[Rfam]
RNA sequence: AGGAGGGCAAGUGCACUGGUGUGUGCCUUGGGCUUCAAACCCAAAGAAUGGCUAGGUGUCUAGCUGUUGAGGAGUUCGAUUCUUCUGCCCUCUC
Numbered sequence: 001a002g003g004a005g006g007g008c009a010a011g012u013g014c015a016c017u018g019g020u021g022u023g024u025g026c027c028u029u030g031g032g033c034u035u036c037a038a039a040c041c042c043a044a045a046g047a048a049u050g051g052c053u054a055g056g057u058g059u060c061u062a063g064c065u066g067u068u069g070a071g072g073a074g075u076u077c078g079a080u081u082c083u084u085c086u087g088c089c090c091u092c093u094c
Stems, first nucleotide, its partner, number of pairs: 002093008011026006028044005047068007071085004

Rfam assigns this 94-nucleotide RNA sequence from Helicobacter anseris to the family "Selenocysteine transfer RNA".